The record is a 203-nucleotide sequence from Tupaia belangeri, which matches "Mnt IRES" in Rfam. On this family, see Stoneley et al., Oncogene 2001: "An internal ribosome entry segment in the 5' untranslated region of the mnt gene". The source organism's lineage runs through Eukaryota, Gnathostomata, Euteleostomi, Tetrapoda and Tupaia. The base pairs follow the family's consensus structure, which was predicted with PFOLD. Rfam links the family to the GO term ribosome binding. About the family: This family represents the Mnt internal ribosome entry site (IRES). Mnt is a transcriptional repressor related to the Myc/Mad family of transcription factors. It is thought that this family allows efficient Mnt synthesis when cap-dependent translation initiation is reduced.
[Rfam]
RNA sequence: UUGUAUUUUGCAAAUUUUGGGAGACAUUGAUUUUCCUCCCUGUGCUCCCCGUUCUUCCCUGCGGAGUGCGCUGCGCCGGCCCAGCCCUGUCGCCCCCAGGAGGUGAUCCCUCCCUCCUGCCUGCCCGCCAGCCUGACCUGUGCCUGGCUCGCGGGCCGCAGCCUUGGCCCCGGCGCGCCCCCGGCAGCUUCUCGGGCGCGAUG
Number, nucleotide and partner (000 for none) at each position: 001u000002u000003g000004u000005a000006u000007u000008u000009u000010g000011c000012a000013a000014a000015u000016u000017u000018u000019g000020g000021g038022a037023g036024a000025c000026a000027u000028u000029g000030a000031u000032u000033u000034u000035c000036c023037u022038c021039c000040c000041u070042g069043u068044g067045c066046u065047c064048c063049c000050c000051g000052u000053u000054c000055u000056u000057c000058c000059c000060u000061g000062c000063g048064g047065a046066g045067u044068g043069c042070g041071c000072u000073g176074c175075g174076c173077c172078g171079g000080c000081c000082c000083a000084g000085c000086c000087c000088u000089g000090u000091c000092g000093c000094c000095c000096c000097c000098a000099g113100g112101a111102g110103g109104u000105g000106a000107u000108c000109c103110c102111u101112c100113c099114c000115u000116c000117c000118u000119g000120c000121c000122u000123g156124c155125c154126c153127g152128c151129c000130a149131g148132c147133c146134u000135g000136a000137c000138c000139u000140g000141u000142g000143c000144c000145u000146g133147g132148c131149u130150c000151g128152c127153g126154g125155g124156c123157c000158g000159c000160a000161g000162c000163c000164u000165u000166g000167g000168c000169c000170c000171c078172g077173g076174c075175g074176c073177g000178c000179c000180c000181c000182c000183g000184g000185c000186a000187g000188c000189u000190u000191c000192u000193c000194g000195g000196g000197c000198g000199c000200g000201a000202u000203g000